[Rfam]
RNA sequence: AGUUCCGGUGCGGUCGGCGCCUUUCCCAAGAAACGCGAGAGGGAAAUGACCCCCCACCGAACCCACCCUUUCCCGCCCGGGACCUGCGCUCACUCGGGCGGGUGGACAUCACCGCUCGGCCGGCUUUUCGGGUGCCCCGCGGCUUUACGCUCAGCGCACACCACCGCAGAAAAGACUUCGGCCCCCGCCGGGACUGGCAUCCCAGUGCGAGGGCCUGACCACCAAGGAAGACGAGACCUUCCCG
Numbered sequence: 001a002g003u004u005c006c007g008g009u010g011c012g013g014u015c016g017g018c019g020c021c022u023u024u025c026c027c028a029a030g031a032a033a034c035g036c037g038a039g040a041g042g043g044a045a046a047u048g049a050c051c052c053c054c055c056a057c058c059g060a061a062c063c064c065a066c067c068c069u070u071u072c073c074c075g076c077c078c079g080g081g082a083c084c085u086g087c088g089c090u091c092a093c094u095c096g097g098g099c100g101g102g103u104g105g106a107c108a109u110c111a112c113c114g115c116u117c118g119g120c121c122g123g124c125u126u127u128u129c130g131g132g133u134g135c136c137c138c139g140c141g142g143c144u145u146u147a148c149g150c151u152c153a154g155c156g157c158a159c160a161c162c163a164c165c166g167c168a169g170a171a172a173a174g175a176c177u178u179c180g181g182c183c184c185c186c187g188c189c190g191g192g193a194c195u196g197g198c199a200u201c202c203c204a205g206u207g208c209g210a211g212g213g214c215c216u217g218a219c220c221a222c223c224a225a226g227g228a229a230g231a232c233g234a235g236a237c238c239u240u241c242c243c244g
Base pairs, nucleotide, nucleotide: 007223008222009221010220016077017076018075019074090105091104092103093102094101095100121154123152180215181214182213183212184211186209187208188207190203191202192201193200226242227241228240229239230238
Dot-bracket structure: ......((((.....((((......................................................))))............((((((....))))))...............(.(............................).).........................(((((.(((.((((......))))...))).)))))....))))..(((((.......)))))..

The family of this 244-nucleotide RNA from Streptomyces viridosporus is "Streptomyces sRNA 4677". On this family, see Hindra et al., PLoS One 2014: "Complex intra-operonic dynamics mediated by a small RNA in Streptomyces coelicolor". The base pairs follow the family's consensus structure. It is one of the family's seed sequences. By type it is a small RNA. Taxonomically the source falls in Streptomyces viridosporus (Bacteria, Bacillati, Actinomycetota, Streptomycetaceae). From the family's description: Located in the intergenic region between anti-sigma factor SCO4677 gene and a putative regulatory protein gene SCO4676. scr4677 expression requires the SCO4677 activity and scr4677 sRNA itself seem to affect the levels of the SCO4676-associated transcripts.